[Rfam]
RNA sequence: ACUCGAUAAAGGCAAAAUUAGUGAAAGCUAGUGACGCAAAACUAUAGGGACUAAGGUGCACGCACUAUGUCAGCCAGUUACCGAA
Number, nucleotide and partner (000 for none) at each position: 001a000002c000003u000004c000005g000006a000007u000008a000009a000010a000011g000012g037013c036014a000015a000016a000017a032018u031019u030020a029021g028022u027023g000024a000025a000026a000027g022028c021029u020030a019031g018032u017033g000034a000035c000036g013037c012038a000039a000040a079041a078042c077043u076044a000045u000046a000047g075048g074049g071050a070051c069052u000053a000054a000055g000056g065057u064058g063059c000060a000061c000062g000063c058064a057065c056066u000067a000068u000069g051070u050071c049072a000073g000074c048075c047076a043077g042078u041079u040080a000081c000082c000083g000084a000085a000
RNA: c-di-GMP-I riboswitch aptamer